[Rfam]
RNA sequence: CCGUACUAGGCGGGGAGGUAGCGGUGCCCUGUACCUGCAAUCCGCUAUAGCAGGGUUGAAUUCCUGUCCUAGGUUUAAGUGUGUAGUGUUUGCCCUUUACAAGUGGCAAUGAAAAUUGGGUCUUGCGCAAUAGAAGUCUGUGAACCCCGUCAGGUCCGGAAGGAAGCAGCGGUAAGCGGUAAUUUCUGUGUGCCGCUGGGUUACCUGGUUAGAGUUAACUGUAAAGGUAACAGCUAUAUAUUUACAUCGACGAUAGGUGUGCGG
Number, nucleotide and partner (000 for none) at each position: 001c264002c263003g262004u261005a260006c259007u000008a000009g057010g056011c055012g030013g029014g028015g027016a000017g025018g000019u023020a000021g000022c000023g019024g000025u017026g000027c015028c014029c013030u012031g000032u000033a000034c054035c053036u052037g051038c050039a000040a000041u000042c000043c000044g000045c000046u000047a000048u000049a000050g038051c037052a036053g035054g034055g011056u010057u009058g000059a000060a000061u000062u000063c257064c256065u255066g254067u253068c252069c000070u000071a000072g248073g247074u246075u000076u244077a000078a242079g241080u240081g239082u238083g237084u236085a235086g234087u233088g000089u000090u000091u229092g228093c000094c000095c226096u225097u224098u223099a222100c221101a000102a000103g219104u218105g216106g215107c214108a000109a000110u000111g000112a000113a000114a210115a209116u208117u207118g206119g205120g204121u203122c199123u198124u000125g196126c195127g194128c190129a189130a000131u188132a187133g186134a185135a184136g000137u000138c179139u178140g177141u176142g000143a000144a000145c000146c000147c172148c171149g170150u169151c000152a000153g000154g000155u164156c163157c162158g000159g000160a000161a000162g157163g156164a155165a000166g000167c000168a000169g150170c149171g148172g147173u000174a000175a000176g141177c140178g139179g138180u000181a000182a000183u000184u135185u134186c133187u132188g131189u129190g128191u000192g000193c000194c127195g126196c125197u000198g123199g122200g000201u000202u000203a121204c120205c119206u118207g117208g116209u115210u114211a000212g000213a000214g107215u106216u105217a000218a104219c103220u000221g100222u099223a098224a097225a096226g095227g000228u092229a091230a000231c000232a000233g087234c086235u085236a084237u083238a082239u081240a080241u079242u078243u000244a076245c000246a074247u073248c072249g000250a000251c000252g068253a067254u066255a065256g064257g063258u000259g006260u005261g004262c003263g002264g001

The record is a 264-nucleotide RNA sequence from Ruminiclostridium sufflavum, which matches "Bacterial large signal recognition particle RNA" in Rfam.
A search with the family's covariance model found it, with a score of 207 bits.
Pairs were carried over by alignment from the consensus structure, which is taken from published work.
Taxonomically the source falls in Ruminiclostridium sufflavum (Bacteria, Clostridia, Eubacteriales, Ruminiclostridium).
Rfam's curators write: The signal recognition particle (SRP) is a universally conserved ribonucleoprotein involved in the co-translational targeting of proteins to membranes.